Source information:
The record is a 75-nucleotide RNA sequence, which matches "DUF3800-X RNA" in Rfam. By type it is a small RNA.

RNA sequence: UAGUGCUGUAAGUCCCUCUCGAAAAGAAUGAGGCCGCCAAUUGGCGGGUGGGACGAAGUAGAGAGGGGUUCGCUA
Numbered sequence: 001u002a003g004u005g006c007u008g009u010a011a012g013u014c015c016c017u018c019u020c021g022a023a024a025a026g027a028a029u030g031a032g033g034c035c036g037c038c039a040a041u042u043g044g045c046g047g048g049u050g051g052g053a054c055g056a057a058g059u060a061g062a063g064a065g066g067g068g069u070u071c072g073c074u075a
Stems, first nucleotide, its partner, number of pairs: 001075005013068008034047005